[Rfam]
RNA sequence: CCCUCCGAAGUUUCCCUCAGGAUAGCUGGAGCUGUAGCAGUCUUAUCCGGUAAAGCGAAUGAUUAGAGGAAUCGGAGAGUCCAAACUCUUUGACCUAUUCUCAAACUUUAAACAGGUAAGGAAGUUGUGUUGCUUAGAUGAACACAGCUGGACGAUGGUUAGCUCUUAGUGGGCCAUUUUUGGUAAGCAGAACUGGCGAUGCGGGAUGAACCGAGAGUGGUGUUAAGGCGCCCAACUACGCGCUCAUUAGAUCCCAGGAAAGGUGUAGGUGCGUAUGGACAGCAGGACGGUGGUCAUGGAGGUCGACAUCCGCUAAGGAGUGUGUAACAACUCACCUGCCGAACGCAUCAGCCCUGAAAAUGGAUGGCGCUCAAGCGCGUGGCCGAUACACCACCGCCGGCGUACAGAAUUUGCUCCGGUGUGUAGGAGGGCGUCGUGCCUUUGCGUCGAAGCCUUUGGCGUGAGCCUUGGUGGAGCAGGCUCGAGUGCAGAU
Numbered sequence: 001c002c003c004u005c006c007g008a009a010g011u012u013u014c015c016c017u018c019a020g021g022a023u024a025g026c027u028g029g030a031g032c033u034g035u036a037g038c039a040g041u042c043u044u045a046u047c048c049g050g051u052a053a054a055g056c057g058a059a060u061g062a063u064u065a066g067a068g069g070a071a072u073c074g075g076a077g078a079g080u081c082c083a084a085a086c087u088c089u090u091u092g093a094c095c096u097a098u099u100c101u102c103a104a105a106c107u108u109u110a111a112a113c114a115g116g117u118a119a120g121g122a123a124g125u126u127g128u129g130u131u132g133c134u135u136a137g138a139u140g141a142a143c144a145c146a147g148c149u150g151g152a153c154g155a156u157g158g159u160u161a162g163c164u165c166u167u168a169g170u171g172g173g174c175c176a177u178u179u180u181u182g183g184u185a186a187g188c189a190g191a192a193c194u195g196g197c198g199a200u201g202c203g204g205g206a207u208g209a210a211c212c213g214a215g216a217g218u219g220g221u222g223u224u225a226a227g228g229c230g231c232c233c234a235a236c237u238a239c240g241c242g243c244u245c246a247u248u249a250g251a252u253c254c255c256a257g258g259a260a261a262g263g264u265g266u267a268g269g270u271g272c273g274u275a276u277g278g279a280c281a282g283c284a285g286g287a288c289g290g291u292g293g294u295c296a297u298g299g300a301g302g303u304c305g306a307c308a309u310c311c312g313c314u315a316a317g318g319a320g321u322g323u324g325u326a327a328c329a330a331c332u333c334a335c336c337u338g339c340c341g342a343a344c345g346c347a348u349c350a351g352c353c354c355u356g357a358a359a360a361u362g363g364a365u366g367g368c369g370c371u372c373a374a375g376c377g378c379g380u381g382g383c384c385g386a387u388a389c390a391c392c393a394c395c396g397c398c399g400g401c402g403u404a405c406a407g408a409a410u411u412u413g414c415u416c417c418g419g420u421g422u423g424u425a426g427g428a429g430g431g432c433g434u435c436g437u438g439c440c441u442u443u444g445c446g447u448c449g450a451a452g453c454c455u456u457u458g459g460c461g462u463g464a465g466c467c468u469u470g471g472u473g474g475a476g477c478a479g480g481c482u483c484g485a486g487u488g489c490a491g492a493u
Stems, first nucleotide, its partner, number of pairs: 001431006011024001013022003028166006041121007053109001054107002060103003065098001067096003072093006079086001123149009173197004178192005202213003217394005223388001227384003236381001238380001241377003261355003265352002268349007282339005288312003293307003313317001318333001322331002395421006402414002432488001434485003438481004444477002452472002458467003

The record is a 493-nucleotide part of an RNA from Guillardia theta, which matches "Eukaryotic large subunit ribosomal RNA" in Rfam. Lineage of the source: Eukaryota > Cryptophyceae > Pyrenomonadales > Geminigeraceae > Guillardia. The base pairs follow the family's consensus structure, which is taken from published work. The sequence is in the family's curated seed alignment.